[Rfam]
RNA sequence: AAGCAUGCUAUUCUAAUGACCUGGGACUUGUUUGUAGUCCAAGGUGCUCCAAUAGCAUGCAAGAGUACAGGAUGGUCUUUGACUGUGCUGGCCAUUUUUGCCAUUAACAGCCACUCUACUGUCCUACAGAU
Numbered sequence: 001a002a003g004c005a006u007g008c009u010a011u012u013c014u015a016a017u018g019a020c021c022u023g024g025g026a027c028u029u030g031u032u033u034g035u036a037g038u039c040c041a042a043g044g045u046g047c048u049c050c051a052a053u054a055g056c057a058u059g060c061a062a063g064a065g066u067a068c069a070g071g072a073u074g075g076u077c078u079u080u081g082a083c084u085g086u087g088c089u090g091g092c093c094a095u096u097u098u099u100g101c102c103a104u105u106a107a108c109a110g111c112c113a114c115u116c117u118a119c120u121g122u123c124c125u126a127c128a129g130a131u
Base pairs, nucleotide, nucleotide: 013043014042018039019038020037024033070124071123072122073121074120075119085111086110089103090102091101
A member of the RNA family "Small nucleolar RNA SNORA44" from Pleuronectes platessa, 131 nucleotides long. Pairs were carried over by alignment from the consensus structure, which was predicted with PFOLD. It scores 58 bits against the family's covariance model. It is annotated as an H/ACA-box small nucleolar RNA. ACA44 is a member of the H/ACA class of snoRNA that guide the sites of modification of uridines to pseudouridines.